[Rfam]
RNA: terC RNA
RNA sequence: CUGGCGGGCCGGGCCCCUCUGGCGAUCGUGUCUCCCUCGCGAUCGUGAUGUCGGACCGCACAG
Numbered sequence: 001c002u003g004g005c006g007g008g009c010c011g012g013g014c015c016c017c018u019c020u021g022g023c024g025a026u027c028g029u030g031u032c033u034c035c036c037u038c039g040c041g042a043u044c045g046u047g048a049u050g051u052c053g054g055a056c057c058g059c060a061c062a063g
Base pairs, nucleotide, nucleotide: 006057007056009054010053011052012051022046023045024044025043026042027041028040029039
Dot-bracket structure: .....((.((((.........((((((((.........))))))))....)))).))......